Overview
Rfam assigns this 98-nucleotide RNA from Thalictrum thalictroides to the family "Small nucleolar RNA Z43". The organism belongs to Thalictrum, within Eukaryota. For this family Rfam cites "The high diversity of snoRNAs in plants: identification and comparative study of 120 snoRNA genes from Oryza sativa" (Chen et al., Nucleic Acids Res, 2003). The family's RNA type in Rfam is C/D-box small nucleolar RNA.
[Rfam]
RNA sequence: GGACAAUGACGAUAUAAUGAAAGGUCUCGUUCGUCGUAAUGGCUUUUAAAAGAGCCUUGCCGACCAUCCUGUUAUAUCACCACCCAUAUUCUGAGUCU
Numbered sequence: 001g002g003a004c005a006a007u008g009a010c011g012a013u014a015u016a017a018u019g020a021a022a023g024g025u026c027u028c029g030u031u032c033g034u035c036g037u038a039a040u041g042g043c044u045u046u047u048a049a050a051a052g053a054g055c056c057u058u059g060c061c062g063a064c065c066a067u068c069c070u071g072u073u074a075u076a077u078c079a080c081c082a083c084c085c086a087u088a089u090u091c092u093g094a095g096u097c098u
Base pairs, nucleotide, nucleotide: 001098002097003096004095046053